This 79-nucleotide sequence from Planobispora longispora belongs to the Rfam family "SAH (S-adenosyl-L-homocysteine) riboswitch aptamer". Its family is annotated with S-adenosylhomocysteine metabolic process and regulation of gene expression in the Gene Ontology.
[Rfam]
RNA sequence: CAGGCCGAGAGGCGCUGCAACGGGCUUGAGACCCGCCACGCUCGGCCUGGCGCAUGUUUCGCAAGGGCGCCUCCGGACA
Numbered sequence: 001c002a003g004g005c006c007g008a009g010a011g012g013c014g015c016u017g018c019a020a021c022g023g024g025c026u027u028g029a030g031a032c033c034c035g036c037c038a039c040g041c042u043c044g045g046c047c048u049g050g051c052g053c054a055u056g057u058u059u060c061g062c063a064a065g066g067g068c069g070c071c072u073c074c075g076g077a078c079a
Base pairs, nucleotide, nucleotide: 002048003047004046005045006044007043008042021035022034023033024032026030